[Rfam]
RNA sequence: UCGGUUCCGGUUCACGCUCGACACGCAACGCGCGAGCGACCCGGCGACC
Dot-bracket structure: ..(((.((((....((((((............))))))..))))..)))
Numbered sequence: 001u002c003g004g005u006u007c008c009g010g011u012u013c014a015c016g017c018u019c020g021a022c023a024c025g026c027a028a029c030g031c032g033c034g035a036g037c038g039a040c041c042c043g044g045c046g047a048c049c
Stems, first nucleotide, its partner, number of pairs: 003049003007044004015038006
Annotation:
The record is a 49-nucleotide sequence from Nocardia donostiensis, which matches "L31-Actinobacteria ribosomal protein leader" in Rfam. The literature on the family includes a 2020 paper in BMC Microbiol by Eckert and Weinberg, "Discovery of 20 novel ribosomal leader candidates in bacteria and archaea". NCBI's taxonomy places the organism under Bacteria, Bacillati, Actinomycetota, Mycobacteriales, Nocardia. Pairs were carried over by alignment from the consensus structure, which is taken from published work. Rfam classes the family as a cis-regulatory leader.